[Rfam]
RNA sequence: UUUCGGUACUGCAGACGUAAAAGAACAGGACACUCGUGGAAGCGACCACGAAAAAAAGCGUA
Numbered sequence: 001u002u003u004c005g006g007u008a009c010u011g012c013a014g015a016c017g018u019a020a021a022a023g024a025a026c027a028g029g030a031c032a033c034u035c036g037u038g039g040a041a042g043c044g045a046c047c048a049c050g051a052a053a054a055a056a057a058g059c060g061u062a
Stems, first nucleotide, its partner, number of pairs: 001017001003015002009028003035050004
Dot-bracket structure: [.[[....(((..]].]........)))......((((........))))............
The record is a 62-nucleotide RNA from Acetivibrio thermocellus, which matches "GP20-b RNA" in Rfam. Taxonomically the source falls in Acetivibrio thermocellus (Bacteria, Bacillota, Clostridia, Acetivibrionaceae). Pairs were carried over by alignment from the consensus structure, which is taken from published work. The family's RNA type in Rfam is cis-regulatory element.